RNA sequence: AAGGAAGCCACCGAAAAUCCUGAAAAAGAGUAGGUA
Numbered sequence: 001a002a003g004g005a006a007g008c009c010a011c012c013g014a015a016a017a018u019c020c021u022g023a024a025a026a027a028g029a030g031u032a033g034g035u036a
Stems, first nucleotide, its partner, number of pairs: 002021004010035003